[Rfam]
RNA: Plastid-clpP 5UTR RNA
Organism: Malus baccata
RNA sequence: UUUUUUUUUUGAAGAAAAAAAAAGAAGCAGAUCUAUUCUACACCCGAUAAGUACCAAUACGCAAGCCGU
Numbered sequence: 001u002u003u004u005u006u007u008u009u010u011g012a013a014g015a016a017a018a019a020a021a022a023a024g025a026a027g028c029a030g031a032u033c034u035a036u037u038c039u040a041c042a043c044c045c046g047a048u049a050a051g052u053a054c055c056a057a058u059a060c061g062c063a064a065g066c067c068g069u
Stems, first nucleotide, its partner, number of pairs: 003022002006019005045068001051060003